[Rfam]
RNA sequence: AUUUAAUAUGGACUCCGAGCCUGGGAGCCUACGAUAUUUUUAUUAUGGUUCCCAGGCCGAUAGGGAUUGUCUGGAAACGGGCAUUCCUCCUGUGUGGAAAGGAGAAUUUUUUGACCGGAA
Number, nucleotide and partner (000 for none) at each position: 001a000002u000003u114004u113005a000006a111007u000008a000009u000010g000011g000012a000013c104014u103015c102016c101017g000018a000019g057020c056021c055022u054023g053024g052025g051026a050027g049028c048029c047030u000031a000032c000033g044034a043035u042036a041037u000038u000039u000040u000041u036042a035043u034044u033045a000046u000047g029048g028049u027050u026051c025052c024053c023054a022055g021056g020057c019058c000059g000060a000061u000062a000063g088064g087065g086066a085067u000068u083069g082070u081071c080072u079073g078074g000075a000076a000077a000078c073079g072080g071081g070082c069083a068084u000085u066086c065087c064088u063089c097090c096091u000092g000093u000094g000095u000096g090097g089098a000099a000100a000101g016102g015103a014104g013105a000106a000107u000108u000109u000110u000111u006112u000113g004114a003115c000116c000117g000118g000119a000120a000